[Rfam]
RNA sequence: GGAUGUGAGGGCGAUCUGGCUGCGACAUCUGUCACCCCAUUGAUCACCAGGGUUGAUUCGGCUGAUCUGGCUGGCUAGGUGGGUGUCCCCUUCCUCCCUCACCGCUCCAUGUGCGUCCCUCCCGAAGCUGCGCACUCGGUCGAAGAGGAUGACCAUCCCCAAUAGAGGAGGACCGUUCUUCGGUCAAGGGUAUACGAGUAGCUGCGCUCCCCUGCUAGAACCUCCAAACAAGCUCUCAAAUGUUAUCAGGUUAGGCUGUUUUCUAAACAGACUUGGCAGUAAAAUUCAGUUCUCCAAAUCCUGUGUCCUUUUGCUUACCUGAAGGGGGCUGAUUCUU
Numbered sequence: 001g002g003a004u005g006u007g008a009g010g011g012c013g014a015u016c017u018g019g020c021u022g023c024g025a026c027a028u029c030u031g032u033c034a035c036c037c038c039a040u041u042g043a044u045c046a047c048c049a050g051g052g053u054u055g056a057u058u059c060g061g062c063u064g065a066u067c068u069g070g071c072u073g074g075c076u077a078g079g080u081g082g083g084u085g086u087c088c089c090c091u092u093c094c095u096c097c098c099u100c101a102c103c104g105c106u107c108c109a110u111g112u113g114c115g116u117c118c119c120u121c122c123c124g125a126a127g128c129u130g131c132g133c134a135c136u137c138g139g140u141c142g143a144a145g146a147g148g149a150u151g152a153c154c155a156u157c158c159c160c161a162a163u164a165g166a167g168g169a170g171g172a173c174c175g176u177u178c179u180u181c182g183g184u185c186a187a188g189g190g191u192a193u194a195c196g197a198g199u200a201g202c203u204g205c206g207c208u209c210c211c212c213u214g215c216u217a218g219a220a221c222c223u224c225c226a227a228a229c230a231a232g233c234u235c236u237c238a239a240a241u242g243u244u245a246u247c248a249g250g251u252u253a254g255g256c257u258g259u260u261u262u263c264u265a266a267a268c269a270g271a272c273u274u275g276g277c278a279g280u281a282a283a284a285u286u287c288a289g290u291u292c293u294c295c296a297a298a299u300c301c302u303g304u305g306u307c308c309u310u311u312u313g314c315u316u317a318c319c320u321g322a323a324g325g326g327g328g329c330u331g332a333u334u335c336u337u
Stems, first nucleotide, its partner, number of pairs: 001108003005102007013093002018090002024087010035074002037070003042067004047061002116171002118168004122139004127135001140162001142160001147158003201259002210255002214251002222249002282337002286332005291325003295321001
The record is a 337-nucleotide RNA sequence from Catagonus wagneri, which matches "7SK RNA" in Rfam. Pairs were carried over by alignment from the consensus structure, which is taken from published work. A search with the family's covariance model found it, with a score of 264 bits. Rfam's curators write: 7SK was discovered as an abundant small nuclear RNA in the mid-70s but a possible function has only recently been suggested. Two independent studies have found that 7SK RNA binds the CDK9/cyclin T complex (known as elongation factor P-TEFb). P-TEFb activates transcription by phosphorylating the C-terminal domain of RNA polymerase II. This process is negatively regulated by the 7SK RNP. The secondary structure of 7SK RNA shown here was proposed by Wasserman and Steitz on the basis of chemical modification and enzymatic cleavage experiments. This family contains a number of annotated pseudogenes and 7SK derived repeats. The organism belongs to Catagonus, within Eukaryota. Its Rfam clan is "7SK clan". It is annotated as a non-coding RNA gene.